Rfam assigns this 69-nucleotide sequence from Flavimaricola marinus to the family "L2-Alphaproteobacteria ribosomal protein leader". It scores 57 bits against the family's covariance model.

RNA sequence: GGGGACCUUCGGGGCCCUAUAGCUAAACAGCCGGGCCCAAACCGCCCGCAAAGCAACGGAAGACAGAAA
Numbered sequence: 001g002g003g004g005a006c007c008u009u010c011g012g013g014g015c016c017c018u019a020u021a022g023c024u025a026a027a028c029a030g031c032c033g034g035g036c037c038c039a040a041a042c043c044g045c046c047c048g049c050a051a052a053g054c055a056a057c058g059g060a061a062g063a064c065a066g067a068a069a
Stems, first nucleotide, its partner, number of pairs: 001018004006014003030049001032048005